[Rfam]
A member of the RNA family "Streptomyces RNA 2736" from Streptomyces showdoensis, 64 nucleotides long. The organism belongs to Streptomyces, within Bacteria.
RNA sequence: CGCCCGGCCCGGAUCCCGUGGGGGGAAUCCGCACCGGGAUAUGGAAAGCGCCCCGACCGCCGAC
Numbered sequence: 001c002g003c004c005c006g007g008c009c010c011g012g013a014u015c016c017c018g019u020g021g022g023g024g025g026a027a028u029c030c031g032c033a034c035c036g037g038g039a040u041a042u043g044g045a046a047a048g049c050g051c052c053c054c055g056a057c058c059g060c061c062g063a064c
Base pairs, nucleotide, nucleotide: 001062002061003038004037005036006035007034010031011030012029013028014027015025016024017023043053044052